A member of the RNA family "MIR164 microRNA precursor family" from Spinacia oleracea, 69 nucleotides long. The organism belongs to Spinacia, within Eukaryota.

RNA sequence: UGGAGAAGGGGAGCACGUGCAAAGCUGAUUUUAGAGAGCUUUAGCUUGCACGUGCCCUGCUUCUCCAGC
Numbered sequence: 001u002g003g004a005g006a007a008g009g010g011g012a013g014c015a016c017g018u019g020c021a022a023a024g025c026u027g028a029u030u031u032u033a034g035a036g037a038g039c040u041u042u043a044g045c046u047u048g049c050a051c052g053u054g055c056c057c058u059g060c061u062u063c064u065c066c067a068g069c
Stems, first nucleotide, its partner, number of pairs: 001067008010058002013055010024045002029036002